[Rfam]
Clostridiales-1 RNA: a 172-nucleotide RNA from Oribacterium sp. C9. The family's consensus secondary structure is taken from published work. It scores 114 bits against the family's covariance model. By type it is a small RNA.

RNA sequence: UAAAAGUGUUCUGCUGUGACCAUCGAGCGCAAGCUUGCUUGCUGGCUCGAAUGGUCAUUGCAGAACCAAAGCAGGUAUGAGGAAAAAGCUACACGAAUGAAAUGAGUGGAGCGAUUUCCGAAUACUGCUUAGGAUUGCGGGAGCACGAAGUGCGAAGCAAUCCGUACUUUUA
Numbered sequence: 001u002a003a004a005a006g007u008g009u010u011c012u013g014c015u016g017u018g019a020c021c022a023u024c025g026a027g028c029g030c031a032a033g034c035u036u037g038c039u040u041g042c043u044g045g046c047u048c049g050a051a052u053g054g055u056c057a058u059u060g061c062a063g064a065a066c067c068a069a070a071g072c073a074g075g076u077a078u079g080a081g082g083a084a085a086a087a088g089c090u091a092c093a094c095g096a097a098u099g100a101a102a103u104g105a106g107u108g109g110a111g112c113g114a115u116u117u118c119c120g121a122a123u124a125c126u127g128c129u130u131a132g133g134a135u136u137g138c139g140g141g142a143g144c145a146c147g148a149a150g151u152g153c154g155a156a157g158c159a160a161u162c163c164g165u166a167c168u169u170u171u172a
Base pairs, nucleotide, nucleotide: 001172002171003170004169005168006167007166008066009065010064011063014060016058017057018056019055020054021053022052023051024049025048026047027046028045029042030041031040032039033038070129071128072127073126075125076124077123078122081119082118083117084116088112089111090110092108093107094106132163133162134161135160136159137158138157143153144152145151146150